[Rfam]
RNA sequence: GCAGCGCCGUGAUGACCUUGUGGAACGACGCCGGCGAGAGGGCGGCGAGCUCCGCCGUCCACCACUCGGGCGGCGACCUCGUCGGGAACAGCACCUCGUUGCAGAUCCUGAGCGCGAUAGCAUCAGCUGAUCGCUGC
Number, nucleotide and partner (000 for none) at each position: 001g137002c136003a135004g134005c133006g132007c000008c000009g000010u000011g000012a000013u000014g000015a000016c000017c000018u000019u000020g000021u000022g000023g000024a000025a000026c000027g000028a000029c000030g000031c085032c084033g083034g082035c081036g080037a079038g078039a000040g052041g051042g050043c049044g000045g000046c000047g000048a000049g043050c042051u041052c040053c075054g074055c073056c072057g071058u070059c069060c068061a000062c000063c000064a000065c000066u000067c000068g060069g059070g058071c057072g056073g055074c054075g053076a000077c000078c038079u037080c036081g035082u034083c033084g032085g031086g000087a000088a000089c000090a000091g000092c000093a000094c000095c000096u000097c000098g000099u000100u000101g000102c000103a000104g000105a000106u000107c000108c000109u000110g000111a000112g000113c000114g000115c000116g000117a000118u000119a000120g000121c000122a000123u000124c000125a000126g000127c000128u000129g000130a000131u000132c006133g005134c004135u003136g002137c001